[Rfam]
This 76-nucleotide RNA from Nitrosomonas cryotolerans belongs to the Rfam family "c-di-GMP-I riboswitch aptamer". Lineage of the source: Bacteria > Pseudomonadati > Nitrosomonadales > Nitrosomonas > Nitrosomonas cryotolerans. For this family Rfam cites "Identification of 22 candidate structured RNAs in bacteria using the CMfinder comparative genomics pipeline" (Weinberg et al., Nucleic Acids Res, 2007). Gene Ontology term of the family: cyclic-di-GMP binding.
RNA sequence: AGUAGAGAAAGGCAAGCUUAUCGUGAGAUAAGAACGCAAAGCUUCUAAUCUUGAAAGAAAUAGUGGCGUUACCAAA
Numbered sequence: 001a002g003u004a005g006a007g008a009a010a011g012g013c014a015a016g017c018u019u020a021u022c023g024u025g026a027g028a029u030a031a032g033a034a035c036g037c038a039a040a041g042c043u044u045c046u047a048a049u050c051u052u053g054a055a056a057g058a059a060a061u062a063g064u065g066g067c068g069u070u071a072c073c074a075a076a
Stems, first nucleotide, its partner, number of pairs: 012037002017032006040070003045066003048061002